mir-310 microRNA precursor family: a 71-nucleotide RNA from Drosophila melanogaster. The family has 23 seed sequences and 60 matches in Rfam 15.1. The sequence is in the family's curated seed alignment.
[Rfam]
Nucleotides: 071
Stems, first nucleotide, its partner, number of pairs: 002069003008063001010061002013058002017054002020051001022050007
Number, partner (000 for none) and nucleotide at each position: 001000a002069u003068u004067u005000u006000c007000u008063g009000c010061u011060g012000c013058g014057g015000a016000u017054g018053g019000g020051g021000g022050c023049a024048g025047u026046a027045c028044u029000g030000u031000u032000u033000u034000u035000u036000u037000a038000a039000c040000a041000u042000u043000g044028a045027g046026u047025a048024u049023u050022g051020c052000a053018c054017u055000u056000u057014u058013c059000a060011c061010a062000g063008c064000c065000c066000g067004a068003a069002a070000a071000u
Notes: Pairs were carried over by alignment from the consensus structure, which was predicted with RNAalifold. Gene Ontology terms of the family: segmentation, response to nicotine and head involution.